[Rfam]
Nucleotides: 081
Stems, first nucleotide, its partner, number of pairs: 002080004006075005011066004016061003019056003022050002026046003030043004
Number, partner (000 for none) and nucleotide at each position: 001000u002080c003079c004078a005077c006075c007074g008073c009072u010071g011066c012065c013064g014063c015000g016061g017060u018059c019056g020055c021054c022050g023049c024000c025000a026046c027045c028044c029000g030043a031042g032041c033040c034000g035000g036000a037000g038000c039000g040033g041032g042031c043030u044028g045027g046026g047000c048000c049023g050022c051000c052000a053000a054021g055020g056019c057000a058000a059018g060017a061016u062000g063014g064013u065012g066011g067000a068000c069000u070000a071010c072009a073008g074007c075006g076000u077005g078004u079003g080002g081000g

The record is an 81-nucleotide sequence from Pongo pygmaeus, which matches "mir-1181 microRNA precursor family" in Rfam. Its family is annotated with RISC complex and miRNA-mediated post-transcriptional gene silencing in the Gene Ontology.